[Rfam]
RNA sequence: GGGUACGGUGGCGAGGUGCUUCGGCUACUCCAUUUAAUGGAGGCCGAGGAAGGUCCCCGGGCCAAUUUGCAGAGAAUGCGCGCUCGAAAGGGUUGAUCUUCGCCUCGAAGUGAUCUGGCGUCUCGCUCGCGCGGGACUGGCUGAGACACGUGUGGAGCCAUGUCCAGGCCUCGGCGAAGCAGCUGGCCACCACUUACAGUGAUGCACCUGGUCGAGAUCCAUUGGUGAUCUCCUCUAACAAAACGGGGCCUACGUCCGCCGUUGC
Number, nucleotide and partner (000 for none) at each position: 001g000002g265003g000004u000005a262006c261007g260008g259009u258010g257011g256012c000013g000014a209015g208016g207017u206018g205019c204020u000021u000022c046023g045024g044025c043026u000027a000028c042029u041030c040031c039032a038033u037034u000035u000036a000037a033038u032039g031040g030041a029042g028043g025044c024045c023046g022047a000048g000049g000050a000051a251052g250053g249054u000055c248056c247057c246058c245059g000060g000061g000062c000063c000064a000065a000066u000067u000068u080069g079070c078071a077072g000073a000074g000075a000076a000077u071078g070079c069080g068081c000082g000083c000084u000085c000086g000087a000088a000089a000090g000091g000092g000093u000094u000095g000096a000097u000098c000099u000100u000101c000102g000103c000104c000105u000106c000107g000108a000109a000110g000111u000112g000113a000114u000115c000116u000117g180118g000119c000120g000121u000122c000123u000124c173125g172126c000127u000128c000129g169130c168131g000132c000133g000134g165135g164136a163137c162138u160139g159140g158141c157142u000143g000144a000145g000146a000147c000148a153149c000150g000151u000152g000153u148154g000155g000156a000157g141158c140159c139160a138161u000162g137163u136164c135165c134166a000167g000168g130169c129170c000171u000172c125173g124174g000175c000176g000177a000178a000179g000180c117181a000182g000183c000184u000185g000186g000187c000188c000189a000190c000191c000192a000193c000194u000195u000196a000197c000198a000199g000200u000201g000202a000203u000204g019205c018206a017207c016208c015209u014210g000211g235212u000213c000214g232215a231216g230217a229218u228219c227220c000221a000222u000223u000224g000225g000226u000227g219228a218229u217230c216231u215232c214233c000234u000235c211236u000237a000238a000239c000240a000241a000242a000243a000244c000245g058246g057247g056248g055249c053250c052251u051252a000253c000254g000255u000256c011257c010258g009259c008260c007261g006262u005263u000264g000265c002